[Rfam]
The family of this 128-nucleotide RNA from bacterium D16-59 is "FMN riboswitch aptamer (RFN element)".
For this family Rfam cites "Regulation of riboflavin biosynthesis and transport genes in bacteria by transcriptional and translational attenuation" (Vitreschak et al., Nucleic Acids Res, 2002).
Pairs were carried over by alignment from the consensus structure, which is taken from published work.

RNA sequence: AUCUAUUUUCAGGGCGGGGUGUAAUUCCCCACCGGCGGUAUUCCAAGAAAGGUAAGCCCGCGAGCCGUAAGGCAUGAUUUGGUGAGAAUCCAAAGCCGACAGUAUAGUCUGGAUGAGAGAAGAUAGUA
Numbered sequence: 001a002u003c004u005a006u007u008u009u010c011a012g013g014g015c016g017g018g019g020u021g022u023a024a025u026u027c028c029c030c031a032c033c034g035g036c037g038g039u040a041u042u043c044c045a046a047g048a049a050a051g052g053u054a055a056g057c058c059c060g061c062g063a064g065c066c067g068u069a070a071g072g073c074a075u076g077a078u079u080u081g082g083u084g085a086g087a088a089u090c091c092a093a094a095g096c097c098g099a100c101a102g103u104a105u106a107g108u109c110u111g112g113a114u115g116a117g118a119g120a121a122g123a124u125a126g127u128a
Stems, first nucleotide, its partner, number of pairs: 003126008017029003031108002033098002035061004056096002066072001078094005100111003